[Rfam]
RNA sequence: AGAAUUUCUCUAGCAGGUUUUCUGGUUUCCACCGGAAAACCCCA
Numbered sequence: 001a002g003a004a005u006u007u008c009u010c011u012a013g014c015a016g017g018u019u020u021u022c023u024g025g026u027u028u029c030c031a032c033c034g035g036a037a038a039a040c041c042c043c044a
Stems, first nucleotide, its partner, number of pairs: 016041011
Description:
The record is a 44-nucleotide sequence from Macaca mulatta, which matches "U7 small nuclear RNA" in Rfam. NCBI's taxonomy places the organism under Eukaryota, Euteleostomi, Haplorrhini, Catarrhini, Macaca.